[Rfam]
RNA sequence: UUAACUCAAAUUUUAUAUGGAGUUGGAACAGGUUCCCUUCGUUUGCCGCUAGGGGCGCUGUUCCAACUCCAUAAAAAUACGAGUUA
Numbered sequence: 001u002u003a004a005c006u007c008a009a010a011u012u013u014u015a016u017a018u019g020g021a022g023u024u025g026g027a028a029c030a031g032g033u034u035c036c037c038u039u040c041g042u043u044u045g046c047c048g049c050u051a052g053g054g055g056c057g058c059u060g061u062u063c064c065a066a067c068u069c070c071a072u073a074a075a076a077a078u079a080c081g082a083g084u085u086a
Stems, first nucleotide, its partner, number of pairs: 010078001012077003016073002019070001021068010036054003041049002
Dot-bracket structure: .........(.(((.((.(.((((((((((.....(((..((.....))..)))....)))))))))).).)).))))........
mir-2807 microRNA precursor family: an 86-nucleotide sequence from Bombyx mori. Taxonomically the source falls in Bombyx (Eukaryota, Metazoa, Bombycidae, Bombycinae). The match comes from Rfam's covariance-model search (66 bits). Rfam links the family to the GO terms RISC complex and miRNA-mediated post-transcriptional gene silencing.